[Rfam]
RNA sequence: GAAGGGGAAGCUGAAAACCUUUAAUUAGAGUAAGCA
Numbered sequence: 001g002a003a004g005g006g007g008a009a010g011c012u013g014a015a016a017a018c019c020u021u022u023a024a025u026u027a028g029a030g031u032a033a034g035c036a
Stems, first nucleotide, its partner, number of pairs: 002021004010035003
The family of this 36-nucleotide sequence is "DUF805b RNA".